[Rfam]
RNA sequence: GGAGCGGACCGGGCCCCUCUGGCGACGAAAGUCGUGAUGUCGGACCGCAUCG
Numbered sequence: 001g002g003a004g005c006g007g008a009c010c011g012g013g014c015c016c017c018u019c020u021g022g023c024g025a026c027g028a029a030a031g032u033c034g035u036g037a038u039g040u041c042g043g044a045c046c047g048c049a050u051c052g
Base pairs, nucleotide, nucleotide: 006046007045009043010042011041012040022035023034024033025032026031
This 52-nucleotide RNA from Gemmobacter aquaticus belongs to the Rfam family "terC RNA". It scores 56 bits against the family's covariance model. The source organism's lineage runs through Bacteria, Pseudomonadati, Pseudomonadota, Alphaproteobacteria and Gemmobacter.